[Rfam]
The record is a 119-nucleotide RNA from Brevundimonas goettingensis, which matches "Caulobacter sRNA CrfA" in Rfam. By type it is a small RNA. The source organism's lineage runs through Bacteria, Pseudomonadati, Pseudomonadota, Alphaproteobacteria and Brevundimonas.
RNA sequence: ACUCGAACGGCGCAACGCGGAAGCACAGCUGCCGGUCGGAGGCGUUUCGGGGAGGAAACGUCCGCUCCACAGAGAGCGUGAAAGCCCGCUGCGAUGUAUCCCCCGCAGCGGGCUUUUUC
Numbered sequence: 001a002c003u004c005g006a007a008c009g010g011c012g013c014a015a016c017g018c019g020g021a022a023g024c025a026c027a028g029c030u031g032c033c034g035g036u037c038g039g040a041g042g043c044g045u046u047u048c049g050g051g052g053a054g055g056a057a058a059c060g061u062c063c064g065c066u067c068c069a070c071a072g073a074g075a076g077c078g079u080g081a082a083a084g085c086c087c088g089c090u091g092c093g094a095u096g097u098a099u100c101c102c103c104c105g106c107a108g109c110g111g112g113c114u115u116u117u118u119c
Base pairs, nucleotide, nucleotide: 003039004038005037006036008034009033015030017029018028020026041062042061043060044059045058046057047056048055080117081116082115083114084113085112086111087110088109089108090107091106092105093104